Overview
The record is a 129-nucleotide RNA sequence from Oryctolagus cuniculus, which matches "Small nucleolar RNA SNORA25" in Rfam.

RNA sequence: AGGUCAUUUCAAAGAGGGCUUGUGGAGCUGUGAAACCAAGAGCUCUCAAUGCUGUGACUAAAGACUGAUGUUCUCCAUGGGAUGUUGUAGUCACUCAAUAGUGCUGUGUUUUCCUGUGGAGGUAUAAGA
Numbered sequence: 001a002g003g004u005c006a007u008u009u010c011a012a013a014g015a016g017g018g019c020u021u022g023u024g025g026a027g028c029u030g031u032g033a034a035a036c037c038a039a040g041a042g043c044u045c046u047c048a049a050u051g052c053u054g055u056g057a058c059u060a061a062a063g064a065c066u067g068a069u070g071u072u073c074u075c076c077a078u079g080g081g082a083u084g085u086u087g088u089a090g091u092c093a094c095u096c097a098a099u100a101g102u103g104c105u106g107u108g109u110u111u112u113c114c115u116g117u118g119g120a121g122g123u124a125u126a127a128g129a
Base pairs, nucleotide, nucleotide: 002059003058004057005056006055007054014047015046016045017044018043019042020041021040023039027036072122073121074120075119076118079115080114081113082112087107088106089105090104092103093102094101095100
Rfam 15.1 lists 1,129 matches to the family in 449 species.
Rfam classes the family as an H/ACA-box small nucleolar RNA.
Rfam describes the family as follows. ACA25 is a member of the H/ACA class of snoRNA that guide the sites of modification of uridines to pseudouridines.